The record is a 92-nucleotide sequence from Hymenobacter sp. NBH84, which matches "SAM riboswitch aptamer (S box leader)" in Rfam. Taxonomically the source falls in Hymenobacter (Bacteria, Pseudomonadati, Bacteroidota, Cytophagia). The match comes from Rfam's covariance-model search (81 bits).

[Rfam]
RNA sequence: UUUUUAUACAGAGGCGUGGAGAGACAGGCUCGACGAAACGCCGGCAACCUCCGCUUAAUGCGGAACGGUGCCAAGUCCUGACCAUAUAAAAA
Numbered sequence: 001u002u003u004u005u006a007u008a009c010a011g012a013g014g015c016g017u018g019g020a021g022a023g024a025c026a027g028g029c030u031c032g033a034c035g036a037a038a039c040g041c042c043g044g045c046a047a048c049c050u051c052c053g054c055u056u057a058a059u060g061c062g063g064a065a066c067g068g069u070g071c072c073a074a075g076u077c078c079u080g081a082c083c084a085u086a087u088a089a090a091a092a
Base pairs, nucleotide, nucleotide: 001092002091003090004089005088006087007086008085013042014041015040016039017038021031022030023029025080026079027078028077043072044071045070046069048068049067050064051063052062053061076084